The record is a 70-nucleotide sequence from Bos taurus, which matches "mir-2450 microRNA precursor family" in Rfam.
RNA sequence: AGAGGCACGUGUGCUUUUUCUACACACUGUAUAGACGCGUGCACAUGUCAGUAGAGGUGCAUGUGGCUUU
Numbered sequence: 001a002g003a004g005g006c007a008c009g010u011g012u013g014c015u016u017u018u019u020c021u022a023c024a025c026a027c028u029g030u031a032u033a034g035a036c037g038c039g040u041g042c043a044c045a046u047g048u049c050a051g052u053a054g055a056g057g058u059g060c061a062u063g064u065g066g067c068u069u070u
Stems, first nucleotide, its partner, number of pairs: 002069003006065013020051002025047002029040002
Dot-bracket structure: .(((.(((((((((((((.((...((..((........)).....))..)).))))))))))))).))).